[Rfam]
RNA sequence: AAAAUUCUUCAGGGCGGGGUGUGAUUCCCCACUGGCGGUAUAGUCCGCGAAUCGAUUAUCAAUAUCGACCGAAUCGGUGAAACUCCGAUACCAACAGUAUAGUCUGGAUGAGAGAAGAUUUUG
Dot-bracket structure: ..((.(((((......(((.......))).[[((((((....[[))))...((.............))....(((((.......)))))]])).(((....]]))).......))))).))..
Numbered sequence: 001a002a003a004a005u006u007c008u009u010c011a012g013g014g015c016g017g018g019g020u021g022u023g024a025u026u027c028c029c030c031a032c033u034g035g036c037g038g039u040a041u042a043g044u045c046c047g048c049g050a051a052u053c054g055a056u057u058a059u060c061a062a063u064a065u066c067g068a069c070c071g072a073a074u075c076g077g078u079g080a081a082a083c084u085c086c087g088a089u090a091c092c093a094a095c096a097g098u099a100u101a102g103u104c105u106g107g108a109u110g111a112g113a114g115a116a117g118a119u120u121u122u123g
Stems, first nucleotide, its partner, number of pairs: 003121002006118005017029003031103002033093002035048004043091002052068002073089005095106003
A member of the RNA family "FMN riboswitch aptamer (RFN element)" from Clostridium sp. CAG:122, 123 nucleotides long. The source organism's lineage runs through Bacteria, Bacillati, Bacillota, Eubacteriales and Clostridium. Rfam links the family to the GO term FMN binding.